[Rfam]
RNA: Group II catalytic intron D1-D4-1
Organism: Paraburkholderia xenovorans
RNA sequence: CGCCUCAUGCCUGAAAGGGCAACGGUGUCGAGCCGGAGCGAGAAGUCAGCAGAGGCCGUAGUAGUUACAGGACAGGCCGGGGAGGCUGAAGCUGGUGACGAAGGGC
Numbered sequence: 001c002g003c004c005u006c007a008u009g010c011c012u013g014a015a016a017g018g019g020c021a022a023c024g025g026u027g028u029c030g031a032g033c034c035g036g037a038g039c040g041a042g043a044a045g046u047c048a049g050c051a052g053a054g055g056c057c058g059u060a061g062u063a064g065u066u067a068c069a070g071g072a073c074a075g076g077c078c079g080g081g082g083a084g085g086c087u088g089a090a091g092c093u094g095g096u097g098a099c100g101a102a103g104g105g106c
Base pairs, nucleotide, nucleotide: 001030002029005024008021009020010019011018012017046053047052055106056105057104064099065098066097067096068095